The record is a 73-nucleotide RNA, which matches "tRNA" in Rfam. It is one of the family's seed sequences.
RNA sequence: GCUUUUAAAGGAAAACAGUCUAUCCGCUGGUCUUAGGAACCAGAAACUCUUGGUGCAAAUCCAAGUGAAAAGC
Numbered sequence: 001g002c003u004u005u006u007a008a009a010g011g012a013a014a015a016c017a018g019u020c021u022a023u024c025c026g027c028u029g030g031u032c033u034u035a036g037g038a039a040c041c042a043g044a045a046a047c048u049c050u051u052g053g054u055g056c057a058a059a060u061c062c063a064a065g066u067g068a069a070a071a072g073c
Stems, first nucleotide, its partner, number of pairs: 003070005010025003027043005049065005
Dot-bracket structure: ..(((((..(((..........))).(((((.......))))).....(((((.......))))))))))...
Rfam classes the family as a transfer RNA.